[Rfam]
RNA sequence: AUCUGGAGAGAGGCGCCUGAAACAAGGCGUCCACCGAAGGGGAACGCCGCGGGCCUGAGCCGGCGGACGAAGCUCUCAGGUACCGUGACAGAU
Numbered sequence: 001a002u003c004u005g006g007a008g009a010g011a012g013g014c015g016c017c018u019g020a021a022a023c024a025a026g027g028c029g030u031c032c033a034c035c036g037a038a039g040g041g042g043a044a045c046g047c048c049g050c051g052g053g054c055c056u057g058a059g060c061c062g063g064c065g066g067a068c069g070a071a072g073c074u075c076u077c078a079g080g081u082a083c084c085g086u087g088a089c090a091g092a093u
Stems, first nucleotide, its partner, number of pairs: 001093005012031006033081003036077002040075003046068001
Dot-bracket structure: (((((......((((((........)))))).(((((..(((...(.....................)....))))).))).......)))))
RNA: Glycine riboswitch aptamer
Organism: Methylobacterium oryzihabitans